[Rfam]
RNA sequence: UCUAAGCGAGGCGAUGGAGUUCGCCUUGAACCGCCCUUGGGGCUGAUGACUCCUUCAAUUUG
Number, nucleotide and partner (000 for none) at each position: 001u000002c000003u000004a000005a000006g000007c000008g000009a000010g025011g024012c023013g022014a000015u000016g053017g052018a051019g050020u049021u048022c013023g012024c011025c010026u000027u000028g000029a000030a000031c000032c000033g043034c042035c041036c000037u000038u000039g000040g000041g035042g034043c033044u000045g000046a000047u000048g021049a020050c019051u018052c017053c016054u000055u000056c000057a000058a000059u000060u000061u000062g000
The family of this 62-nucleotide RNA from Aminobacter sp. MSH1 is "Fluoride riboswitch aptamer (crcB RNA motif)". The source organism's lineage runs through Bacteria, Pseudomonadati, Alphaproteobacteria, Phyllobacteriaceae and Aminobacter. The family's consensus secondary structure is taken from published work. Gene Ontology terms of the family: positive regulation of gene expression and response to fluoride. The match comes from Rfam's covariance-model search (57 bits). For this family Rfam cites "An excited state underlies gene regulation of a transcriptional riboswitch" (Zhao et al., Nat Chem Biol, 2017).